A member of the RNA family "Glycine riboswitch aptamer" from Microbacterium sp. RU33B, 115 nucleotides long. Taxonomically the source falls in Microbacterium (Bacteria, Bacillati, Actinomycetota, Microbacteriaceae). Gene Ontology term of the family: glycine biosynthetic process.
[Rfam]
RNA sequence: CCACUCUGAAAAGCGAUCCCGCGCGCCGGCGGGGGAUCCGCCGACGGUGAAAGCCCCGCCACGGACCCGCGUCCGUCCACGGGUGAAGCUCUCAGGCCCAUGACAGAGGGGGAGU
Number, nucleotide and partner (000 for none) at each position: 001c111002c110003a000004c108005u107006c106007u105008g104009a000010a000011a000012a000013g000014c000015g038016a037017u036018c035019c034020c033021g000022c000023g000024c000025g000026c000027c000028g000029g000030c000031g000032g000033g020034g019035g018036a017037u016038c015039c000040g097041c096042c095043g093044a092045c000046g000047g091048u000049g089050a000051a000052a000053g084054c083055c082056c081057c000058g000059c000060c000061a000062c000063g000064g000065a000066c000067c000068c000069g000070c000071g000072u000073c000074c000075g000076u000077c000078c000079a000080c000081g056082g055083g054084u053085g000086a000087a000088g000089c049090u000091c047092u044093c043094a000095g042096g041097c040098c000099c000100a000101u000102g000103a000104c008105a007106g006107a005108g004109g000110g002111g001112g000113a000114g000115u000